RNA: ZMP/ZTP riboswitch aptamer (pfl RNA motif)
Organism: Schaalia cardiffensis
RNA sequence: UGAGGCGGUCGCAACUGGCGAGGGUGGGGCACCACCGGGGAGCGGCCGGCAGUUCCCGUGAGGCGCCGCCCGCCUGGGCGCCGGGC
Numbered sequence: 001u002g003a004g005g006c007g008g009u010c011g012c013a014a015c016u017g018g019c020g021a022g023g024g025u026g027g028g029g030c031a032c033c034a035c036c037g038g039g040g041a042g043c044g045g046c047c048g049g050c051a052g053u054u055c056c057c058g059u060g061a062g063g064c065g066c067c068g069c070c071c072g073c074c075u076g077g078g079c080g081c082c083g084g085g086c
Stems, first nucleotide, its partner, number of pairs: 004050001006048007015039002017074004024035004063081005